[Rfam]
Small nucleolar RNA snoR109: an 88-nucleotide RNA from Ignelater luminosus.
Rfam classes the family as an H/ACA-box small nucleolar RNA.
The literature on the family includes a 2002 paper in Curr Biol by Marker et al., "Experimental RNomics: identification of 140 candidates for small non-messenger RNAs in the plant Arabidopsis thaliana".
Gene Ontology terms of the family: RNA processing and nucleolus.

RNA sequence: UAGCUGAAGAGAUUUUCAACCAAAUUGAAGACUAGCCAGACCCGAUGGUUUCCAGUUGAUAGUUUUGCUUAACGUUCCUUUUACAUCU
Numbered sequence: 001u002a003g004c005u006g007a008a009g010a011g012a013u014u015u016u017c018a019a020c021c022a023a024a025u026u027g028a029a030g031a032c033u034a035g036c037c038a039g040a041c042c043c044g045a046u047g048g049u050u051u052c053c054a055g056u057u058g059a060u061a062g063u064u065u066u067g068c069u070u071a072a073c074g075u076u077c078c079u080u081u082u083a084c085a086u087c088u
Stems, first nucleotide, its partner, number of pairs: 022082003027077003034069003038065004045057001